[Rfam]
RNA sequence: GUCCCCAUGGAGUGCUCAGGUCCGCCGCAUCUCCUGGGUCCCGUGGGGCGGUCGGCCGGCAUGCGGUCAUACGCGGUGUCCUCGUACCGCGACCGUAGCGCCGGCCGGCCACAUC
Numbered sequence: 001g002u003c004c005c006c007a008u009g010g011a012g013u014g015c016u017c018a019g020g021u022c023c024g025c026c027g028c029a030u031c032u033c034c035u036g037g038g039u040c041c042c043g044u045g046g047g048g049c050g051g052u053c054g055g056c057c058g059g060c061a062u063g064c065g066g067u068c069a070u071a072c073g074c075g076g077u078g079u080c081c082u083c084g085u086a087c088c089g090c091g092a093c094c095g096u097a098g099c100g101c102c103g104g105c106c107g108g109c110c111a112c113a114u115c
Base pairs, nucleotide, nucleotide: 003048004047005046006045007044008043009042010041015038016037017036018035019034020033050110051109052108053107054106055105056104057103058102059101060100
Notes: EcpR1: a 115-nucleotide RNA from Aureimonas jatrophae. About the family: Perviously named SmelC291, SmrC10, or Sra33. According to its overproduction phenotype it was renamed Elongated Cell Phenotype RNA1. Induced by stress,EcpR1 negatively regulates cell cycle master regulatory genes dnaA and gcrA at post-transcriptional level by base pairing between its strongly conserved GC-rich loop and the target mRNAs. It's regulation is hfq-independent but requires RNase E to regulate dnaA. Gene Ontology terms of the family: mRNA binding, negative regulation of cell cycle and regulation of translation in response to stress.